[Rfam]
RNA sequence: UCACUAUCCAAACACGCCUCACCGAGACUAAACAGCGUGUCUAAAAAACAGUCUCUCAUACCUCAGGCGGAGGGUGUCUGAGGAAUAUUUUACCUA
Dot-bracket structure: ............(((((.(....[[[[[.....))))))...........]]]]].....(((((((.........))))))).............